[Rfam]
RNA sequence: CCCACACUUAUGUGUGUAGGACCUCAAAAGAUCACCAUUAAAUUUGACACAGAUCUCUAGAAAAGCUAUCACAUGGGUGUGAGAUUUGACUUUUCUAGAGAUCUGCGUUAAAUUUAAUGGUGAUCCUUUGGGGUCCUACACACAUAGGUGUGGG
Numbered sequence: 001c002c003c004a005c006a007c008u009u010a011u012g013u014g015u016g017u018a019g020g021a022c023c024u025c026a027a028a029a030g031a032u033c034a035c036c037a038u039u040a041a042a043u044u045u046g047a048c049a050c051a052g053a054u055c056u057c058u059a060g061a062a063a064a065g066c067u068a069u070c071a072c073a074u075g076g077g078u079g080u081g082a083g084a085u086u087u088g089a090c091u092u093u094u095c096u097a098g099a100g101a102u103c104u105g106c107g108u109u110a111a112a113u114u115u116a117a118u119g120g121u122g123a124u125c126c127u128u129u130g131g132g133g134u135c136c137u138a139c140a141c142a143c144a145u146a147g148g149u150g151u152g153g154g
Stems, first nucleotide, its partner, number of pairs: 002153012015140014030125003034121015050105016067088002069082005

Shown here is a 154-nucleotide RNA from Amborella trichopoda, a member of the family "MIR8565 microRNA precursor family". The base pairs follow the family's consensus structure, which was predicted with RNAalifold. The source organism's lineage runs through Eukaryota, Streptophyta, Embryophyta, Amborellaceae and Amborella. It scores 158 bits against the family's covariance model.